[Rfam]
RNA: SAM riboswitch aptamer (S box leader)
RNA sequence: CUCUUAUUCAGAGAGACGGAGGGAUAUGGCCCAAUGAAGUCUCAGCAACCACAGGCUUGCCUGUAAGGUGCUAAUUCCAUCAAAGCUUUGUACAUAAGCUUUGGAAGAUGAGAG
Numbered sequence: 001c002u003c004u005u006a007u008u009c010a011g012a013g014a015g016a017c018g019g020a021g022g023g024a025u026a027u028g029g030c031c032c033a034a035u036g037a038a039g040u041c042u043c044a045g046c047a048a049c050c051a052c053a054g055g056c057u058u059g060c061c062u063g064u065a066a067g068g069u070g071c072u073a074a075u076u077c078c079a080u081c082a083a084a085g086c087u088u089u090g091u092a093c094a095u096a097a098g099c100u101u102u103g104g105a106a107g108a109u110g111a112g113a114g
Stems, first nucleotide, its partner, number of pairs: 001114008013043005021032003026080004044072004049068002051064004076106001081103008